The family of this 88-nucleotide RNA sequence from Archaeoglobus fulgidus is "L4-Archaeoglobi ribosomal protein leades". The source organism's lineage runs through Archaea, Methanobacteriati, Archaeoglobales, Archaeoglobaceae and Archaeoglobus fulgidus. By type it is a cis-regulatory leader.
RNA sequence: CUGACGGGACGCGAUGGGUGGAUGUUGGCAUCGACGCCCUGGCGCCCAUGAAGAGUGAUGCGGAAAAGGGCGCCCGCGUGACCGUCAG
Number, nucleotide and partner (000 for none) at each position: 001c088002u087003g086004a085005c084006g000007g000008g000009a079010c078011g077012c076013g075014a000015u000016g039017g038018g037019u000020g000021g000022a000023u000024g035025u034026u033027g032028g000029c000030a000031u000032c027033g026034a025035c024036g000037c018038c017039c016040u000041g000042g073043c072044g071045c070046c069047c068048a000049u066050g000051a000052a000053g000054a000055g000056u000057g000058a000059u000060g000061c000062g000063g000064a000065a000066a049067a000068g047069g046070g045071c044072g043073c042074c000075c013076g012077c011078g010079u009080g000081a000082c000083c000084g005085u004086c003087a002088g001